[Rfam]
Shown here is a 72-nucleotide RNA sequence, a member of the family "skipping-rope RNA". The base pairs follow the family's consensus structure, which is taken from published work. Rfam's curators put it in the seed alignment.
Nucleotides: 072
Stems, first nucleotide, its partner, number of pairs: 001072008011029005019058005031042001047064005
Number, partner (000 for none) and nucleotide at each position: 001072u002071a003070u004069u005068a006067u007066a008065g009000a010000a011029g012028a013027u014026a015025g016000a017000a018000a019058u020057a021056g022055u023054a024000g025015c026014u027013a028012u029011c030000g031042c032000c033000a034000u035000a036000a037000u038000u039000u040000a041000g042031g043000a044000a045000a046000u047064g048063u049062a050061g051060g052000g053000g054023u055022g056021c057020u058019g059000u060051c061050c062049u063048a064047c065008c066007u067006a068005u069004a070003a071002u072001a